[Rfam]
RNA: BsrG
Organism: Mesobacillus campisalis
RNA sequence: AGCAAUAGAAUAGGAAACUCAAGGGUGGUCAGCUCAUCCCCAAGCGAAAGGGGGUGGUGCUGUGACGGUAUUCGAAGCAUUAAUGUUUGCAUGUACUUUUGCAAGCUUAAUCAUUGCGAUCCUGUUGUUUAACCACAGAAAAUAAUCCACCCUUGAGCUUGACGGCCAGGUGGAUUAUUCCCAACAUUGUGCUGUCCCCCUAGAAGGGAAUUUCUAUUGCACUGACCGUAUGGUGUUACCAGCACCAACG
Numbered sequence: 001a002g003c004a005a006u007a008g009a010a011u012a013g014g015a016a017a018c019u020c021a022a023g024g025g026u027g028g029u030c031a032g033c034u035c036a037u038c039c040c041c042a043a044g045c046g047a048a049a050g051g052g053g054g055u056g057g058u059g060c061u062g063u064g065a066c067g068g069u070a071u072u073c074g075a076a077g078c079a080u081u082a083a084u085g086u087u088u089g090c091a092u093g094u095a096c097u098u099u100u101g102c103a104a105g106c107u108u109a110a111u112c113a114u115u116g117c118g119a120u121c122c123u124g125u126u127g128u129u130u131a132a133c134c135a136c137a138g139a140a141a142a143u144a145a146u147c148c149a150c151c152c153u154u155g156a157g158c159u160u161g162a163c164g165g166c167c168a169g170g171u172g173g174a175u176u177a178u179u180c181c182c183a184a185c186a187u188u189g190u191g192c193u194g195u196c197c198c199c200c201u202a203g204a205a206g207g208g209a210a211u212u213u214c215u216a217u218u219g220c221a222c223u224g225a226c227c228g229u230a231u232g233g234u235g236u237u238a239c240c241a242g243c244a245c246c247a248a249c250g
Base pairs, nucleotide, nucleotide: 002220003219004218005217007215008214009213011194012193013192015190018157019156020155021154022153023152024151025150027147028146029145034057035056036055038054039053040052041051064126065125066124067123068122070120077090078089079088100118101117102116103115195209196208197207198206227250228249229248231247232246233245234244235243236242237241